[Rfam]
RNA sequence: ACCCCGCGCAUGUCCGGGUGAUUGAUAUGCACCUCCCUGUUGGACUGGCCCGGGCACUGCCCGGGCCUUUUU
Numbered sequence: 001a002c003c004c005c006g007c008g009c010a011u012g013u014c015c016g017g018g019u020g021a022u023u024g025a026u027a028u029g030c031a032c033c034u035c036c037c038u039g040u041u042g043g044a045c046u047g048g049c050c051c052g053g054g055c056a057c058u059g060c061c062c063g064g065g066c067c068u069u070u071u072u
Stems, first nucleotide, its partner, number of pairs: 008030007048066008

Record summary
The record is a 72-nucleotide RNA from Pseudooceanicola pacificus, which matches "Singlet oxygen resistance RNA X" in Rfam. The pairing is the family consensus, mapped onto this sequence. Rfam describes the family as follows. SorX (RSs2461)like SorY is a singlet oxygen induced sRNA that counteracts oxidative stress by targeting mRNA for a transporter in Rhodobacter. It also has an impact on resistance against organic hydroperoxides. It targets SD sequence of potA mRNA via an aSD sequence. The aSD sequence and some neighbouring nucleotides are identical to the one of SorY (targets takP mRNA). The organism belongs to Pseudooceanicola, within Bacteria.